Rfam assigns this 413-nucleotide RNA sequence from Pseudomonas sp. TAD18 to the family "Pseudomonas sRNA CrcZ". Rfam classes the family as a small RNA. On this family, see Moreno et al., Mol Microbiol 2007: "The Pseudomonas putida Crc global regulator is an RNA binding protein that inhibits translation of the AlkS transcriptional regulator".
[Rfam]
RNA sequence: AUAACAAGAAUAAAAAGUGCAGCAACAUAAUAAAAACAAUACGAAACGACUCUGACAUAACAAAAACAACACGGCAGAGACGCAGCUAACAGAUUUUUUUGGAGAAGGUUUACUUUUCCGAGGAGCCAUAAGCCACCUCGCAACCGGGCUGAGAAUAAUAAAACUACCUUCAGGUAGCACCCGUUCAGGUUGGAUCACAGGUGUGAUAGCCGGUGAUAAAAGUGGAUCAGCGCUCAAAAAAAUACGUUUGCUCUUGAUCCCGGAUGGGGAUCGCAAAAACAGCAACAAAGGGCCACGGUUCCAAAAACAACAACAGACCGCCCCUCAAUAAUUAAAAAAGAGCACGCAACGACACGUUAAAGGGGAGCUUCGGCUCCCCUUUGUGCUAUCUGCAAUGACCCUUUACCCCUCCC
Numbered sequence: 001a002u003a004a005c006a007a008g009a010a011u012a013a014a015a016a017g018u019g020c021a022g023c024a025a026c027a028u029a030a031u032a033a034a035a036a037c038a039a040u041a042c043g044a045a046a047c048g049a050c051u052c053u054g055a056c057a058u059a060a061c062a063a064a065a066a067c068a069a070c071a072c073g074g075c076a077g078a079g080a081c082g083c084a085g086c087u088a089a090c091a092g093a094u095u096u097u098u099u100u101g102g103a104g105a106a107g108g109u110u111u112a113c114u115u116u117u118c119c120g121a122g123g124a125g126c127c128a129u130a131a132g133c134c135a136c137c138u139c140g141c142a143a144c145c146g147g148g149c150u151g152a153g154a155a156u157a158a159u160a161a162a163a164c165u166a167c168c169u170u171c172a173g174g175u176a177g178c179a180c181c182c183g184u185u186c187a188g189g190u191u192g193g194a195u196c197a198c199a200g201g202u203g204u205g206a207u208a209g210c211c212g213g214u215g216a217u218a219a220a221a222g223u224g225g226a227u228c229a230g231c232g233c234u235c236a237a238a239a240a241a242a243u244a245c246g247u248u249u250g251c252u253c254u255u256g257a258u259c260c261c262g263g264a265u266g267g268g269g270a271u272c273g274c275a276a277a278a279a280c281a282g283c284a285a286c287a288a289a290g291g292g293c294c295a296c297g298g299u300u301c302c303a304a305a306a307a308c309a310a311c312a313a314c315a316g317a318c319c320g321c322c323c324c325u326c327a328a329u330a331a332u333u334a335a336a337a338a339a340g341a342g343c344a345c346g347c348a349a350c351g352a353c354a355c356g357u358u359a360a361a362g363g364g365g366a367g368c369u370u371c372g373g374c375u376c377c378c379c380u381u382u383g384u385g386c387u388a389u390c391u392g393c394a395a396u397g398a399c400c401c402u403u404u405a406c407c408c409c410u411c412c413c
Stems, first nucleotide, its partner, number of pairs: 047082002050079004097239005111232001113230001141192005147186001164177005257271005292393001294392002296320004342386004360381009